[Rfam]
Background: Shown here is a 66-nucleotide RNA sequence from Gasterosteus aculeatus, a member of the family "Selenocysteine insertion sequence 1". Rfam 15.1 lists 3,793 matches to the family in 721 species. The family's consensus secondary structure is taken from published work. The source organism's lineage runs through Eukaryota, Euteleostomi, Perciformes, Gasterosteales and Gasterosteus. The family's RNA type in Rfam is cis-regulatory element. For this family Rfam cites "A novel RNA structural motif in the selenocysteine insertion element of eukaryotic selenoprotein mRNAs" (Walczak et al., RNA, 1996). The incorporation of selenocysteine into a protein sequence is directed by an in-frame UGA codon (usually a stop codon) within the coding region of the mRNA. Selenoprotein mRNAs contain a conserved secondary structure in the 3' UTR that is required for the distinction of UGA stop from UGA selenocysteine.
RNA sequence: UUUACAGCAUGACGACAUCCUCCGAAACCACGUCCGUUGUGAGGGGGCUGUCUGAUGAAGCGUAAA
Numbered sequence: 001u002u003u004a005c006a007g008c009a010u011g012a013c014g015a016c017a018u019c020c021u022c023c024g025a026a027a028c029c030a031c032g033u034c035c036g037u038u039g040u041g042a043g044g045g046g047g048c049u050g051u052c053u054g055a056u057g058a059a060g061c062g063u064a065a066a
Stems, first nucleotide, its partner, number of pairs: 001066005014052004019047005029039002
Dot-bracket structure: (((((........((((.(((((.....((.......))...))))).)))).........)))))